[Rfam]
RNA sequence: GGGCUUCGGCUAAGUCGAUUAGGCGGAUUGGUCAAACCACCCAAUGGUGCUUUCUUUUCACGGGAAGGUACUUAGCGAUUGGGAAAUGAUUUCAUUUGAAUUUAUUCAAGAUGUAAUCAGGU
Numbered sequence: 001g002g003g004c005u006u007c008g009g010c011u012a013a014g015u016c017g018a019u020u021a022g023g024c025g026g027a028u029u030g031g032u033c034a035a036a037c038c039a040c041c042c043a044a045u046g047g048u049g050c051u052u053u054c055u056u057u058u059c060a061c062g063g064g065a066a067g068g069u070a071c072u073u074a075g076c077g078a079u080u081g082g083g084a085a086a087u088g089a090u091u092u093c094a095u096u097u098g099a100a101u102u103u104a105u106u107c108a109a110g111a112u113g114u115a116a117u118c119a120g121g122u
Stems, first nucleotide, its partner, number of pairs: 008033006015026003038121001040083006046072002049069003053065004088118004093113005
The record is a 122-nucleotide RNA sequence from Maribellus luteus, which matches "Group II catalytic intron D1-D4-2" in Rfam. Rfam describes the family as follows. Group II introns are found in rRNA, tRNA and mRNA of organelles in fungi, plants and protists, and also in mRNA in bacteria. The source organism's lineage runs through Bacteria, Bacteroidota, Bacteroidia, Marinilabiliales and Maribellus. The literature on the family includes a 2001 paper in Trends Genet by Bonen and Vogel, "The ins and outs of group II introns".